[Rfam]
U4 spliceosomal RNA: a 140-nucleotide RNA from Aotus nancymaae. NCBI's taxonomy places the organism under Eukaryota, Amniota, Mammalia, Euarchontoglires, Aotus.
RNA sequence: AGCUUUGGGCAGUGGAAGUAUCAUAGCCAAUGAGUUUUACCCGAGGCGCAAUUAUUGCUGAUUGAAAUUUUUCCCAAUACCCCGCCAUGACGACUUGAAAUAUAGUCGGCAUUGGCAAUUUUUGACAGUCUCUACAGAGA
Numbered sequence: 001a002g003c004u005u006u007g008g009g010c011a012g013u014g015g016a017a018g019u020a021u022c023a024u025a026g027c028c029a030a031u032g033a034g035u036u037u038u039a040c041c042c043g044a045g046g047c048g049c050a051a052u053u054a055u056u057g058c059u060g061a062u063u064g065a066a067a068u069u070u071u072u073c074c075c076a077a078u079a080c081c082c083c084g085c086c087a088u089g090a091c092g093a094c095u096u097g098a099a100a101u102a103u104a105g106u107c108g109g110c111a112u113u114g115g116c117a118a119u120u121u122u123u124g125a126c127a128g129u130c131u132c133u134a135c136a137g138a139g140a
Stems, first nucleotide, its partner, number of pairs: 020052002024048001026047003034042001084116003087112003091108005129140004
Dot-bracket structure: ...................((..(.(((.....(.......)..))))..))...............................((((((.(((((........))))).))).)))............((((....))))
The literature on the family includes a 1997 paper in Nucleic Acids Res by Zwieb, "The uRNA database". Its family is annotated with spliceosomal tri-snRNP complex assembly and U4 snRNP in the Gene Ontology.